The family of this 51-nucleotide RNA sequence is "Na+ riboswitch aptamer (DUF1646)". A reference for the family is White et al. (2022), "Na(+) riboswitches regulate genes for diverse physiological processes in bacteria", Nat Chem Biol. Rfam links the family to the GO terms regulation of gene expression and sodium ion binding.
Nucleotides: 051
Stems, first nucleotide, its partner, number of pairs: 003026003006021006032051001034049005
Number, partner (000 for none) and nucleotide at each position: 001000g002000g003026u004025u005024g006021g007020a008019c009018g010017g011016c012000u013000a014000a015000c016011g017010c018009c019008g020007u021006u022000u023000u024005c025004a026003a027000g028000a029000u030000g031000c032051g033000u034049c035048u036047u037046c038045u039000u040000g041000g042000g043000u044000g045038g046037g047036a048035a049034g050000u051032c